This 84-nucleotide RNA from Streptomyces pluripotens belongs to the Rfam family "nrdJ RNA". The base pairs follow the family's consensus structure, which is taken from published work. A search with the family's covariance model found it, with a score of 73 bits.
RNA sequence: ACCUGUUGCGGGUCGCAGCUGAGGGUGCCCGCAACACAAGACAGAACACCGUGCCACGGAACAAACGGGGCACUUCAGGGCGUU
Numbered sequence: 001a002c003c004u005g006u007u008g009c010g011g012g013u014c015g016c017a018g019c020u021g022a023g024g025g026u027g028c029c030c031g032c033a034a035c036a037c038a039a040g041a042c043a044g045a046a047c048a049c050c051g052u053g054c055c056a057c058g059g060a061a062c063a064a065a066c067g068g069g070g071c072a073c074u075u076c077a078g079g080g081c082g083u084u
Stems, first nucleotide, its partner, number of pairs: 004036010016024001051073005057067002